RNA sequence: GCAUGGACGAAUUCUGCGUUAGCUUUCCUCAGUAGCUAAUGCAGUCAGACACUAUGCAAGAGCAUAUUCCUUUUUCACACUCUGAUUGGUAUGCUUUUUGCAUGAAAAUGGGCAUGCCCAUGGAAGUGGGAUACAU
Numbered sequence: 001g002c003a004u005g006g007a008c009g010a011a012u013u014c015u016g017c018g019u020u021a022g023c024u025u026u027c028c029u030c031a032g033u034a035g036c037u038a039a040u041g042c043a044g045u046c047a048g049a050c051a052c053u054a055u056g057c058a059a060g061a062g063c064a065u066a067u068u069c070c071u072u073u074u075u076c077a078c079a080c081u082c083u084g085a086u087u088g089g090u091a092u093g094c095u096u097u098u099u100g101c102a103u104g105a106a107a108a109u110g111g112g113c114a115u116g117c118c119c120a121u122g123g124a125a126g127u128g129g130g131a132u133a134c135a136u
Base pairs, nucleotide, nucleotide: 001057002056003055004054005053006052014044015043016042017041018040019039068131069130070129072126073125074124075123076122085121086120088118089117090116091115092114093113094112095111096110
RNA: Small nucleolar RNA SNORA15